[Rfam]
RNA sequence: UGGAGAAUGAAGCUACACGGUUGUAGCACCGGUUUGCUAAACCGGCUGUGCCCGAAAGGGCAUCAGGUUCGACCCCUGCUUUCUCCG
Numbered sequence: 001u002g003g004a005g006a007a008u009g010a011a012g013c014u015a016c017a018c019g020g021u022u023g024u025a026g027c028a029c030c031g032g033u034u035u036g037c038u039a040a041a042c043c044g045g046c047u048g049u050g051c052c053c054g055a056a057a058g059g060g061c062a063u064c065a066g067g068u069u070c071g072a073c074c075c076c077u078g079c080u081u082u083c084u085c086c087g
Base pairs, nucleotide, nucleotide: 001087002086003085004084005083006082007081009079012027013026014025015024016023017022028047029045030044031043032042033041049062050061051060052059053058064078065077066076067075
About this RNA: The record is an 87-nucleotide RNA sequence from Godonkavirus godonK, which matches "Selenocysteine transfer RNA" in Rfam. NCBI's taxonomy places the organism under Viruses, Heunggongvirae, Uroviricota, Caudoviricetes, Godonkavirus godonK. The base pairs follow the family's consensus structure, which is taken from published work.